[Rfam]
RNA sequence: AGUCAAGAGUCUUUAGCGCCGUUUUGGUGAUCGAUUUUCUUUUGCCUGAAGCAAGGUGAAAGAAAUG
Numbered sequence: 001a002g003u004c005a006a007g008a009g010u011c012u013u014u015a016g017c018g019c020c021g022u023u024u025u026g027g028u029g030a031u032c033g034a035u036u037u038u039c040u041u042u043u044g045c046c047u048g049a050a051g052c053a054a055g056g057u058g059a060a061a062g063a064a065a066u067g
Stems, first nucleotide, its partner, number of pairs: 010063005017058004022054002025051001029047001032044003
Rfam assigns this 67-nucleotide RNA sequence from Rhizobium album to the family "S-element". About the family: This family represents a group of S-elements from p42d and related plasmids. The S-element has multiple functions and is believed to act as a negative regulator of repC transcription, be required for efficient replication and act as a translational enhancer of repC. It is annotated as a cis-regulatory element. The family's consensus secondary structure is taken from published work. Rfam links the family to the GO terms translation regulator activity and mRNA transcription. Taxonomically the source falls in Rhizobium (Bacteria, Alphaproteobacteria, Hyphomicrobiales, Rhizobiaceae).